[Rfam]
RNA sequence: AAACUUGAUUAAGCGCCUGGACUAUUUCUGAUCGGCAAUGGAAAUAGUUGACGAGGAGGAGGUCAUCGAACUUAAUCGGCGGAUACCUCCCGACUGCACAUCUCAGUCGUGAUGCUUUUUUUCGAAAACGGCAAGGCGACUUGCUGUACAAAAAUCAAGGCAAGAUGGAAU
Number, nucleotide and partner (000 for none) at each position: 001a000002a000003a000004c000005u000006u000007g000008a000009u000010u000011a000012a000013g000014c000015g000016c000017c000018u000019g000020g049021a048022c047023u046024a045025u044026u043027u042028c000029u040030g000031a000032u000033c000034g000035g000036c000037a000038a000039u000040g029041g000042a027043a026044a025045u024046a023047g022048u021049u020050g000051a000052c000053g000054a000055g000056g000057a000058g090059g089060a088061g087062g086063u000064c000065a000066u079067c078068g077069a076070a000071c000072u000073u000074a000075a000076u069077c068078g067079g066080c000081g000082g000083a000084u000085a000086c062087c061088u060089c059090c058091c109092g108093a107094c106095u105096g104097c000098a000099c000100a000101u000102c000103u000104c096105a095106g094107u093108c092109g091110u000111g000112a000113u000114g161115c160116u159117u158118u157119u000120u000121u000122u000123c000124g000125a000126a000127a000128a000129c146130g145131g144132c143133a142134a141135g140136g000137c000138g000139a000140c135141u134142u133143g132144c131145u130146g129147u000148a000149c000150a000151a000152a000153a000154a000155u000156c000157a118158a117159g116160g115161c114162a000163a000164g000165a000166u000167g000168g000169a000170a000171u000